[Rfam]
Background: A member of the RNA family "UnaL2 LINE 3' element" from Coregonus sp. 'balchen', 55 nucleotides long.

RNA sequence: UGCACUCACUGACUGUAAGUCACUCUGGAUAAGAGUGUCUGCUAAAUGUGUGAGA
Numbered sequence: 001u002g003c004a005c006u007c008a009c010u011g012a013c014u015g016u017a018a019g020u021c022a023c024u025c026u027g028g029a030u031a032a033g034a035g036u037g038u039c040u041g042c043u044a045a046a047u048g049u050g051u052g053a054g055a
Base pairs, nucleotide, nucleotide: 014044015042016041017040021037022036023035024034025033026032
It scores 57 bits against the family's covariance model. It is annotated as a cis-regulatory element. Rfam links the family to the GO term transposition, RNA-mediated. The base pairs follow the family's consensus structure, which is taken from published work. A reference for the family is Baba et al. (2004), "Solution structure of an RNA stem-loop derived from the 3' conserved region of eel LINE UnaL2", RNA.